Rfam assigns this 71-nucleotide sequence from Acanthaster planci to the family "mir-153 microRNA precursor family". A reference for the family is Chen et al. (2005), "The developmental miRNA profiles of zebrafish as determined by small RNA cloning", Genes Dev. The organism belongs to Acanthaster, within Eukaryota. A search with the family's covariance model found it, with a score of 63 bits. The family's consensus secondary structure was predicted with RNAalifold.

RNA sequence: GCCUCAGUCAUUUUUGUGCUUAUGCAACUCUCCUCUUCCUGUAGUUGCAUAGUCACAAAAGUGAUUGAGUC
Numbered sequence: 001g002c003c004u005c006a007g008u009c010a011u012u013u014u015u016g017u018g019c020u021u022a023u024g025c026a027a028c029u030c031u032c033c034u035c036u037u038c039c040u041g042u043a044g045u046u047g048c049a050u051a052g053u054c055a056c057a058a059a060a061g062u063g064a065u066u067g068a069g070u071c
Stems, first nucleotide, its partner, number of pairs: 003069004008064011020052001023049007